[Rfam]
RNA sequence: AGGCUGUAAUGGCUUUUAGUGGAACCAAGUAUUUUGGGAUAUUUGGCCUGGGAACGAAACUUCCUUACGGUCAGACAUGGAUUGCACGUUUCGUCUUUGGCGGAACAAGGGGUUUUGCCAAGUUUUGGUAGGGUUCUGCGCCAUGCCCUGUUGCUUCAACCGUCUUCCUGAACCCGCCUGUUAGGGCUUGUCUCGGCUGGUGUAGUUUUCUGUGCCAGUUGGAGGGUUUAGGGCUCUGAGUUAACGUGUCCCGGUUUAACAAUCAAUCGAUCUUCGCGGGUUGCUCGUUGGCAGACAGCGCGAGAAAUCCGUUGUUUCUGUCCGAUGCGGCAAUGUAAUCUGGUCAUGUGACCUCGCCUUGACCGCCAUUAGGGGAGAUUCAUCCAGCGAUGGCAAAGGCGACCCGUGAGAGAGGCGACUGGGAUGGCACUGUUCUUAGGGUUAACAAGUACAAGUUCGGUUUAUUAUGGACGGUGGAGUCUGGUAUUUCCUACCACAUGUUGGGUGUAAACUACUCUUAGGAACCACUAACU
Numbered sequence: 001a002g003g004c005u006g007u008a009a010u011g012g013c014u015u016u017u018a019g020u021g022g023a024a025c026c027a028a029g030u031a032u033u034u035u036g037g038g039a040u041a042u043u044u045g046g047c048c049u050g051g052g053a054a055c056g057a058a059a060c061u062u063c064c065u066u067a068c069g070g071u072c073a074g075a076c077a078u079g080g081a082u083u084g085c086a087c088g089u090u091u092c093g094u095c096u097u098u099g100g101c102g103g104a105a106c107a108a109g110g111g112g113u114u115u116u117g118c119c120a121a122g123u124u125u126u127g128g129u130a131g132g133g134u135u136c137u138g139c140g141c142c143a144u145g146c147c148c149u150g151u152u153g154c155u156u157c158a159a160c161c162g163u164c165u166u167c168c169u170g171a172a173c174c175c176g177c178c179u180g181u182u183a184g185g186g187c188u189u190g191u192c193u194c195g196g197c198u199g200g201u202g203u204a205g206u207u208u209u210c211u212g213u214g215c216c217a218g219u220u221g222g223a224g225g226g227u228u229u230a231g232g233g234c235u236c237u238g239a240g241u242u243a244a245c246g247u248g249u250c251c252c253g254g255u256u257u258a259a260c261a262a263u264c265a266a267u268c269g270a271u272c273u274u275c276g277c278g279g280g281u282u283g284c285u286c287g288u289u290g291g292c293a294g295a296c297a298g299c300g301c302g303a304g305a306a307a308u309c310c311g312u313u314g315u316u317u318c319u320g321u322c323c324g325a326u327g328c329g330g331c332a333a334u335g336u337a338a339u340c341u342g343g344u345c346a347u348g349u350g351a352c353c354u355c356g357c358c359u360u361g362a363c364c365g366c367c368a369u370u371a372g373g374g375g376a377g378a379u380u381c382a383u384c385c386a387g388c389g390a391u392g393g394c395a396a397a398g399g400c401g402a403c404c405c406g407u408g409a410g411a412g413a414g415g416c417g418a419c420u421g422g423g424a425u426g427g428c429a430c431u432g433u434u435c436u437u438a439g440g441g442u443u444a445a446c447a448a449g450u451a452c453a454a455g456u457u458c459g460g461u462u463u464a465u466u467a468u469g470g471a472c473g474g475u476g477g478a479g480u481c482u483g484g485u486a487u488u489u490c491c492u493a494c495c496a497c498a499u500g501u502u503g504g505g506u507g508u509a510a511a512c513u514a515c516u517c518u519u520a521g522g523a524a525c526c527a528c529u530a531a532c533u
Stems, first nucleotide, its partner, number of pairs: 001015004017530006028516004032511002037468001038466003162461003199216007236439003240435001243433001246430004250423007271413003274409002277406004285329001286327004290322003293317008302309002345350001354402007365394005374385003
This 533-nucleotide sequence from Naumovozyma castellii belongs to the Rfam family "Fungal signal recognition particle RNA". Pairs were carried over by alignment from the consensus structure, which is taken from published work. Rfam classes the family as a non-coding RNA gene. Rfam 15.1 lists 748 matches to the family in 741 species. Its Rfam clan is "SRP clan".